[Rfam]
RNA sequence: CCGCGCUAGAUGGGGAGCUGACGGUGCCCUGUAACCCGCAAUCCGUCCAGCGGGAUUGAACUCCUAUGCGAGGGUGAAUCAAGUGAGGAAAACGGAUGAAAGCGCCGAUGACGAUCAAGUCUCGCGCGGCAACAAUUCAUGAAUCGGGUCAGGUUCGGAAGAAAGCAGCCCUAAGUGAAAAUUGUUGCGCGCUGCGAGGCAGCUUGAUCUGAGUGAACUUUCUUCUGGAAUAUUCGGUUGAUUCUACUCGGACAUGGGCGCGCGG
Numbered sequence: 001c002c003g004c005g006c007u008a009g010a011u012g013g014g015g016a017g018c019u020g021a022c023g024g025u026g027c028c029c030u031g032u033a034a035c036c037c038g039c040a041a042u043c044c045g046u047c048c049a050g051c052g053g054g055a056u057u058g059a060a061c062u063c064c065u066a067u068g069c070g071a072g073g074g075u076g077a078a079u080c081a082a083g084u085g086a087g088g089a090a091a092a093c094g095g096a097u098g099a100a101a102g103c104g105c106c107g108a109u110g111a112c113g114a115u116c117a118a119g120u121c122u123c124g125c126g127c128g129g130c131a132a133c134a135a136u137u138c139a140u141g142a143a144u145c146g147g148g149u150c151a152g153g154u155u156c157g158g159a160a161g162a163a164a165g166c167a168g169c170c171c172u173a174a175g176u177g178a179a180a181a182u183u184g185u186u187g188c189g190c191g192c193u194g195c196g197a198g199g200c201a202g203c204u205u206g207a208u209c210u211g212a213g214u215g216a217a218c219u220u221u222c223u224u225c226u227g228g229a230a231u232a233u234u235c236g237g238u239u240g241a242u243u244c245u246a247c248u249c250g251g252a253c254a255u256g257g258g259c260g261c262g263c264g265g
Stems, first nucleotide, its partner, number of pairs: 001265006009057003012030004017025003035054005063258006072249005078242005084236004092231001093227004098222001101219002103215003113209008121198006127189002130187005136179005146171004154163003
Notes:
Shown here is a 265-nucleotide RNA from Ammoniphilus oxalaticus, a member of the family "Bacterial large signal recognition particle RNA". The signal recognition particle (SRP) is a universally conserved ribonucleoprotein involved in the co-translational targeting of proteins to membranes. A reference for the family is Rosenblad et al. (2009), "Kinship in the SRP RNA family", RNA Biol. Lineage of the source: Bacteria > Bacillati > Bacilli > Paenibacillaceae > Ammoniphilus. The match comes from Rfam's covariance-model search (164 bits).